[Rfam]
RNA sequence: UUGAAAGAUUUAAAGACUCCAAAUUGCAUGCUUAGAGGAUUUGAAGACUUCAACUUGCAUAUUUAGAGUAUUUCAAAACUUUAACU
Numbered sequence: 001u002u003g004a005a006a007g008a009u010u011u012a013a014a015g016a017c018u019c020c021a022a023a024u025u026g027c028a029u030g031c032u033u034a035g036a037g038g039a040u041u042u043g044a045a046g047a048c049u050u051c052a053a054c055u056u057g058c059a060u061a062u063u064u065a066g067a068g069u070a071u072u073u074c075a076a077a078a079c080u081u082u083a084a085c086u
Stems, first nucleotide, its partner, number of pairs: 001084005009076002012073003017068003021064001025059004032053002035050003
This 86-nucleotide sequence from Solanum commersonii belongs to the Rfam family "MIR8024 microRNA precursor family". It scores 79 bits against the family's covariance model. Taxonomically the source falls in Solanum (Eukaryota, Spermatophyta, Gunneridae, Pentapetalae).